[Rfam]
RNA: Small nucleolar RNA Z122
Organism: Cucurbita maxima
Nucleotides: 086
Base pairs, nucleotide, nucleotide: 001086004083005082006081007080
Number, partner (000 for none) and nucleotide at each position: 001086u002000u003000c004083g005082g006081g007080a008000a009000a010000u011000g012000a013000u014000g015000a016000c017000a018000a019000g020000c021000u022000a023000c024000a025000g026000a027000a028000a029000a030000c031000g032000u033000u034000c035000a036000g037000a038000g039000g040000c041000a042000g043000c044000u045000g046000c047000u048000a049000u050000g051000c052000u053000g054000a055000a056000c057000u058000u059000a060000u061000u062000a063000u064000u065000u066000g067000c068000a069000c070000g071000u072000c073000a074000g075000u076000c077000u078000g079000a080007u081006c082005c083004c084000u085000u086001g